[Rfam]
RNA sequence: AGCCUGUAAUGAACUACUUUAAUUCUUGACAUCAUGUGUGAAAACUGCAUAGGCAGUCUUAUUAUUGUCAAGACAGAGGCUU
Number, nucleotide and partner (000 for none) at each position: 001a081002g080003c079004c078005u000006g000007u000008a000009a000010u000011g000012a000013a000014c000015u000016a000017c000018u000019u000020u000021a000022a000023u000024u000025c000026u000027u000028g000029a000030c000031a000032u000033c000034a000035u000036g000037u000038g000039u000040g000041a000042a000043a000044a057045c056046u055047g054048c053049a000050u000051a000052g000053g048054c047055a046056g045057u044058c000059u000060u000061a000062u000063u000064a000065u000066u000067g000068u000069c000070a000071a000072g000073a000074c000075a000076g000077a000078g004079g003080c002081u001082u000
RNA: Small nucleolar RNA SNORD60